[Rfam]
RNA sequence: AUUCCCAAUCUUCUCUAUUUCCUUCUCCUCAAACACAGCCUGGGAGUGUUUGAGAAGGGGAUUGAGGAGAUUGGGAAG
Numbered sequence: 001a002u003u004c005c006c007a008a009u010c011u012u013c014u015c016u017a018u019u020u021c022c023u024u025c026u027c028c029u030c031a032a033a034c035a036c037a038g039c040c041u042g043g044g045a046g047u048g049u050u051u052g053a054g055a056a057g058g059g060g061a062u063u064g065a066g067g068a069g070a071u072u073g074g075g076a077a078g
Base pairs, nucleotide, nucleotide: 002077003076004075005074006073007072008071009070010069011068012067014065015064017062018061021058022057023056024055025054026053027052033051035049036048037047040044

Rfam assigns this 78-nucleotide sequence from Oryza sativa to the family "MIR815 microRNA precursor family". The literature on the family includes a 2006 paper in FEBS Lett by Luo et al., "Rice embryogenic calli express a unique set of microRNAs, suggesting regulatory roles of microRNAs in plant post-embryogenic development". Rfam 15.1 lists 12 matches to the family in 7 species. Rfam's curators put it in the seed alignment. Lineage of the source: Eukaryota > Liliopsida > Petrosaviidae > Oryzinae > Oryza sativa.